[Rfam]
RNA sequence: UGCCGUCGAUAUUUGGAUACUCGUAUAAAUUUGGGGAUAUGGCCCGAAAGUUUCUACCCGAGAACCUUAAAUUUUCGGACUACGAGCAAUGUAUAAGGAACA
Numbered sequence: 001u002g003c004c005g006u007c008g009a010u011a012u013u014u015g016g017a018u019a020c021u022c023g024u025a026u027a028a029a030u031u032u033g034g035g036g037a038u039a040u041g042g043c044c045c046g047a048a049a050g051u052u053u054c055u056a057c058c059c060g061a062g063a064a065c066c067u068u069a070a071a072u073u074u075u076c077g078g079a080c081u082a083c084g085a086g087c088a089a090u091g092u093a094u095a096a097g098g099a100a101c102a
Stems, first nucleotide, its partner, number of pairs: 018088001020086006030048006058078007

The record is a 102-nucleotide RNA sequence from Paenibacillus roseus, which matches "Purine riboswitch aptamer" in Rfam. The source organism's lineage runs through Bacteria, Bacilli, Caryophanales, Paenibacillaceae and Paenibacillus. The match comes from Rfam's covariance-model search (78 bits). Gene Ontology term of the family: purine nucleobase biosynthetic process. Riboswitches are metabolite binding domains within certain messenger RNAs that serve as precision sensors for their corresponding targets. Allosteric rearrangement of mRNA structure is mediated by ligand binding, and this results in modulation of gene expression.